This 64-nucleotide RNA belongs to the Rfam family "pemK RNA".
RNA sequence: AUAAUGAUACUUCCGUAAUUCGCGGUCCGGCCACAAUGAAGACGGGAAGGUGUAAGUUCUAUGA
Numbered sequence: 001a002u003a004a005u006g007a008u009a010c011u012u013c014c015g016u017a018a019u020u021c022g023c024g025g026u027c028c029g030g031c032c033a034c035a036a037u038g039a040a041g042a043c044g045g046g047a048a049g050g051u052g053u054a055a056g057u058u059c060u061a062u063g064a
Base pairs, nucleotide, nucleotide: 012061013025014024015023016022026047027046028045030043032041048060049059050058